[Rfam]
Nucleotides: 091
Stems, first nucleotide, its partner, number of pairs: 011080009020070006028062002
Number, partner (000 for none) and nucleotide at each position: 001000c002000u003000u004000u005000u006000a007000u008000c009000u010000u011080u012079c013078c014077u015076u016075a017074u018073c019072a020070u021069u022068c023067u024066c025065u026000u027000g028062c029061c030000c031000g032000g033000c034000c035000g036000a037000a038000u039000a040000c041000u042000a043000u044000g045000u046000u047000a048000u049000u050000g051000a052000a053000a054000u055000u056000g057000c058000g059000c060000u061029g062028g063000a064000c065025g066024g067023a068022g069021a070020a071000c072019u073018g074017a075016u076015a077014a078013g079012g080011g081000c082000u083000u084000a085000u086000a087000u088000a089000a090000g091000a
The record is a 91-nucleotide sequence from Strongylocentrotus purpuratus, which matches "mir-184 microRNA precursor family" in Rfam.
Rfam's curators put it in the seed alignment.
The source organism's lineage runs through Eukaryota, Eleutherozoa, Echinozoa, Echinacea and Strongylocentrotus.
Its family is annotated with RISC complex and gene silencing by miRNA in the Gene Ontology.
The base pairs follow the family's consensus structure, which was predicted with PFOLD.